Rfam assigns this 291-nucleotide sequence from Brettanomyces naardenensis to the family "Nuclear RNase P". Pairs were carried over by alignment from the consensus structure, which is taken from published work. A reference for the family is Frank and Pace (1998), "Ribonuclease P: unity and diversity in a tRNA processing ribozyme", Annu Rev Biochem. The family's RNA type in Rfam is ribozyme. Rfam 15.1 lists 3,848 matches to the family in 1,862 species. Rfam links the family to the GO terms tRNA processing, ribonuclease P complex and ribonuclease P activity.
[Rfam]
RNA sequence: AUUGUUAAUAGUCCGCGCGUACUCGUUUUCAAAAGGAAGGCCCUGAUGGCCUUCAGCGCUGGCGAGUGGGAAAUUCGGUGGUAUGCUCCAUCUAAGUUAAGGAUACUCUUGAGAGUCUUCCAAGGCGUGAAAACGCUGGGCUGCUGUCAUCAGAAAUAUAGGCCCCUUAUUGGGGUCAUGGGAGCGCAGUGCAGAUGGUUGACGUGGUACCCUUGAGUGCUUCGUUGCUGAGUUCAAUGCGUGGAUUCUAGGGACUUGUCCUUAGAAAACUCGAUACCGAUCAUUAAUAAU
Numbered sequence: 001a002u003u004g005u006u007a008a009u010a011g012u013c014c015g016c017g018c019g020u021a022c023u024c025g026u027u028u029u030c031a032a033a034a035g036g037a038a039g040g041c042c043c044u045g046a047u048g049g050c051c052u053u054c055a056g057c058g059c060u061g062g063c064g065a066g067u068g069g070g071a072a073a074u075u076c077g078g079u080g081g082u083a084u085g086c087u088c089c090a091u092c093u094a095a096g097u098u099a100a101g102g103a104u105a106c107u108c109u110u111g112a113g114a115g116u117c118u119u120c121c122a123a124g125g126c127g128u129g130a131a132a133a134c135g136c137u138g139g140g141c142u143g144c145u146g147u148c149a150u151c152a153g154a155a156a157u158a159u160a161g162g163c164c165c166c167u168u169a170u171u172g173g174g175g176u177c178a179u180g181g182g183a184g185c186g187c188a189g190u191g192c193a194g195a196u197g198g199u200u201g202a203c204g205u206g207g208u209a210c211c212c213u214u215g216a217g218u219g220c221u222u223c224g225u226u227g228c229u230g231a232g233u234u235c236a237a238u239g240c241g242u243g244g245a246u247u248c249u250a251g252g253g254a255c256u257u258g259u260c261c262u263u264a265g266a267a268a269a270c271u272c273g274a275u276a277c278c279g280a281u282c283a284u285u286a287a288u289a290a291u
Stems, first nucleotide, its partner, number of pairs: 001291004007285003012245007021067005036054005041048001076279005089197004105116004124137005142191006161177003246267007
Ribonuclease P (RNase P) is a ubiquitous endoribonuclease, found in archaea, bacteria and eukarya as well as chloroplasts and mitochondria.